The family of this 82-nucleotide RNA is "Small nucleolar RNA snoR14".

[Rfam]
RNA sequence: UCGAGGUGACGAUAGAAAUUCACAGGUCUGUCAAUCCACUGAUAUAUGUGAUGUAAUUGUGUUCUCGACAGGUUCUGAUCGA
Dot-bracket structure: ((((..........................................................................))))
Numbered sequence: 001u002c003g004a005g006g007u008g009a010c011g012a013u014a015g016a017a018a019u020u021c022a023c024a025g026g027u028c029u030g031u032c033a034a035u036c037c038a039c040u041g042a043u044a045u046a047u048g049u050g051a052u053g054u055a056a057u058u059g060u061g062u063u064c065u066c067g068a069c070a071g072g073u074u075c076u077g078a079u080c081g082a
Stems, first nucleotide, its partner, number of pairs: 001082004

Source information
The family is grouped with related families in Rfam's "SNORD110 clan". Pairs were carried over by alignment from the consensus structure. The literature on the family includes a 2001 paper in RNA by Brown et al., "Multiple snoRNA gene clusters from Arabidopsis". Rfam links the family to the GO terms RNA processing and nucleolus. The family's RNA type in Rfam is C/D-box small nucleolar RNA.